[Rfam]
The family of this 108-nucleotide RNA from Natronogracilivirga saccharolytica is "Bacteroidales small SRP". The match comes from Rfam's covariance-model search (91 bits). Clan: SRP clan. Its family is annotated with SRP-dependent cotranslational protein targeting to membrane, signal sequence recognition and signal recognition particle, plasma membrane targeting in the Gene Ontology. Taxonomically the source falls in Natronogracilivirga (Bacteria, Balneolia, Balneolales, Cyclonatronaceae).

RNA sequence: GAAAAUGGGGUAAGUCCUGCACGACCAGCUCCCUCUCAACUCCGUCAGGACCGGAAGGUAGCAGCGGCAGGAGGUCGUAGCGGUGCGAUGCAGGUCGCUUACCCCUUU
Dot-bracket structure: .......((((((((.(((((((((.........................................................)).)).)))))...))))))))....